Shown here is a 65-nucleotide sequence from Mytilus coruscus, a member of the family "mir-1994 microRNA precursor family". A search with the family's covariance model found it, with a score of 58 bits. Lineage of the source: Eukaryota > Bivalvia > Pteriomorphia > Mytilidae > Mytilus. Pairs were carried over by alignment from the consensus structure, which was predicted with RNAalifold.
[Rfam]
RNA sequence: UCUCAGGAAGAGCAUUCUGUCUGCAUGAUUGAAAGGUACAUGAGACAGUGUGUCCUCCCUAAGAC
Numbered sequence: 001u002c003u004c005a006g007g008a009a010g011a012g013c014a015u016u017c018u019g020u021c022u023g024c025a026u027g028a029u030u031g032a033a034a035g036g037u038a039c040a041u042g043a044g045a046c047a048g049u050g051u052g053u054c055c056u057c058c059c060u061a062a063g064a065c
Stems, first nucleotide, its partner, number of pairs: 002063002006058003010054002013052003017048006025041003